[Rfam]
RNA sequence: GACUACGGUAGCUGAAGAGAGCCGUCUGUUGACAGUUCGCUAUGGACGCUGUCAUGGAGUCGCUCUCUUCAGAAGCCGCUGC
Numbered sequence: 001g002a003c004u005a006c007g008g009u010a011g012c013u014g015a016a017g018a019g020a021g022c023c024g025u026c027u028g029u030u031g032a033c034a035g036u037u038c039g040c041u042a043u044g045g046a047c048g049c050u051g052u053c054a055u056g057g058a059g060u061c062g063c064u065c066u067c068u069u070c071a072g073a074a075g076c077c078g079c080u081g082c
Stems, first nucleotide, its partner, number of pairs: 014070005020064003025058004031053003035049002

Overview: Rfam assigns this 82-nucleotide sequence from Ancylostoma ceylanicum to the family "mir-46/mir-47/mir-281 microRNA precursor family". Pairs were carried over by alignment from the consensus structure, which was predicted with RNAalifold. The family has 57 seed sequences and 307 matches in Rfam 15.1. On this family, see Lau et al., Science 2001: "An abundant class of tiny RNAs with probable regulatory roles in Caenorhabditis elegans". The organism belongs to Ancylostoma, within Eukaryota.